RNA: TPP riboswitch aptamer (THI element)
Organism: Sporosarcina luteola
RNA sequence: GUUAACCACUGGGGGAGUCUUUGUGAAAGACUGAGACGUGUAUUGAUAUGCGGACCCUUUGAACCUGAUCUGGCUCAUACCAGCGUAGGGAAGUGGGUCGCACGUCUU
Numbered sequence: 001g002u003u004a005a006c007c008a009c010u011g012g013g014g015g016a017g018u019c020u021u022u023g024u025g026a027a028a029g030a031c032u033g034a035g036a037c038g039u040g041u042a043u044u045g046a047u048a049u050g051c052g053g054a055c056c057c058u059u060u061g062a063a064c065c066u067g068a069u070c071u072g073g074c075u076c077a078u079a080c081c082a083g084c085g086u087a088g089g090g091a092a093g094u095g096g097g098u099c100g101c102a103c104g105u106c107u108u
Stems, first nucleotide, its partner, number of pairs: 006096005011058004017031005038051005064089004070083004